RNA sequence: CGCGCGGGAAGGGCCGGAGGGGCCGCCUCCCUCCCAUGGCCCGAGGGCGCCACGCGGGGGCCAGUAACUCCGCCGCGGGCCACAGGGCCAGGCCAAGGCUCCCGCGGUAACUGUGAGCGCCCAGCCCACGGGGUCAACGGUGGCCGAGCGCCCGCCGGAGGACGGGCGUUGACGGCCUCAGCCGGGCUAACCUGGCCAGGCCCGGAAGGGAGCAACCUAGCCCGGCCGUUGACGUUCGUGGUGACUGGGCGUGAGGAGCCGCGGGGUUAAAGCCUGACCUGGUUCCGGGAACGCGGCGGGGGUCCGCGCG
Numbered sequence: 001c002g003c004g005c006g007g008g009a010a011g012g013g014c015c016g017g018a019g020g021g022g023c024c025g026c027c028u029c030c031c032u033c034c035c036a037u038g039g040c041c042c043g044a045g046g047g048c049g050c051c052a053c054g055c056g057g058g059g060g061c062c063a064g065u066a067a068c069u070c071c072g073c074c075g076c077g078g079g080c081c082a083c084a085g086g087g088c089c090a091g092g093c094c095a096a097g098g099c100u101c102c103c104g105c106g107g108u109a110a111c112u113g114u115g116a117g118c119g120c121c122c123a124g125c126c127c128a129c130g131g132g133g134u135c136a137a138c139g140g141u142g143g144c145c146g147a148g149c150g151c152c153c154g155c156c157g158g159a160g161g162a163c164g165g166g167c168g169u170u171g172a173c174g175g176c177c178u179c180a181g182c183c184g185g186g187c188u189a190a191c192c193u194g195g196c197c198a199g200g201c202c203c204g205g206a207a208g209g210g211a212g213c214a215a216c217c218u219a220g221c222c223c224g225g226c227c228g229u230u231g232a233c234g235u236u237c238g239u240g241g242u243g244a245c246u247g248g249g250c251g252u253g254a255g256g257a258g259c260c261g262c263g264g265g266g267u268u269a270a271a272g273c274c275u276g277a278c279c280u281g282g283u284u285c286c287g288g289g290a291a292c293g294c295g296g297c298g299g300g301g302g303u304c305c306g307c308g309c310g
Stems, first nucleotide, its partner, number of pairs: 001310008012062004016034007040058004068301010080289001081287001086284007094276002097273001098268001100266009111255002117252008126241007133233003137230001138228002140179001142177005147170008156161001182225007194217002201210003

Description: This 310-nucleotide RNA from Acidilobus saccharovorans belongs to the Rfam family "Archaeal signal recognition particle RNA". Rfam links the family to the GO terms SRP-dependent cotranslational protein targeting to membrane, signal sequence recognition and signal recognition particle, plasma membrane targeting. By type it is a non-coding RNA gene. The base pairs follow the family's consensus structure, which is taken from published work.